[Rfam]
RNA sequence: CAUGGGGGAGAGGAACAGGCUAUGGCUGUGCCUUUAGAAGUCAGUCUUUUUCUCUCUCCUAUA
Numbered sequence: 001c002a003u004g005g006g007g008g009a010g011a012g013g014a015a016c017a018g019g020c021u022a023u024g025g026c027u028g029u030g031c032c033u034u035u036a037g038a039a040g041u042c043a044g045u046c047u048u049u050u051u052c053u054c055u056c057u058c059c060u061a062u063a
Stems, first nucleotide, its partner, number of pairs: 002062007010054004015049001017047005025041003029037001
RNA: mir-14 microRNA precursor family
Organism: Coptotermes formosanus